[Rfam]
The family of this 93-nucleotide sequence from Lates calcarifer is "Vault RNA". NCBI's taxonomy places the organism under Eukaryota, Metazoa, Euteleostomi, Eurypterygia, Lates.
RNA sequence: GCAUCGGCUUGGCCCAGUGGUUACAUCUGUCAGCACAGGCCGACGCAGUCCACCGGCUGCUGGGUUUGACCACGGGCGCUGUCCGAUGUUUUC
Numbered sequence: 001g002c003a004u005c006g007g008c009u010u011g012g013c014c015c016a017g018u019g020g021u022u023a024c025a026u027c028u029g030u031c032a033g034c035a036c037a038g039g040c041c042g043a044c045g046c047a048g049u050c051c052a053c054c055g056g057c058u059g060c061u062g063g064g065u066u067u068g069a070c071c072a073c074g075g076g077c078g079c080u081g082u083c084c085g086a087u088g089u090u091u092u093c
Stems, first nucleotide, its partner, number of pairs: 002088006012077004017073004026069002029066001